[Rfam]
RNA sequence: AGGGGUCGGGUCUUCUGAGUCCGCAGCACUCAGGCUAUGUGUGCCUCCGCAGCAGGUGCAGGCCCAGUACCCU
Numbered sequence: 001a002g003g004g005g006u007c008g009g010g011u012c013u014u015c016u017g018a019g020u021c022c023g024c025a026g027c028a029c030u031c032a033g034g035c036u037a038u039g040u041g042u043g044c045c046u047c048c049g050c051a052g053c054a055g056g057u058g059c060a061g062g063c064c065c066a067g068u069a070c071c072c073u
Stems, first nucleotide, its partner, number of pairs: 002073005008065005015033006042058005
RNA: bZIP non canonical Hac1/Xbp1 intron
Organism: Gadus morhua